[Rfam]
RNA sequence: UUGCGUGGGGAUCGCCCUCCGUCAGCGCGUUGCGCCCACGGGGGCUGCAGUG
Numbered sequence: 001u002u003g004c005g006u007g008g009g010g011a012u013c014g015c016c017c018u019c020c021g022u023c024a025g026c027g028c029g030u031u032g033c034g035c036c037c038a039c040g041g042g043g044g045c046u047g048c049a050g051u052g
Stems, first nucleotide, its partner, number of pairs: 016044007025035004
RNA: ffh sRNA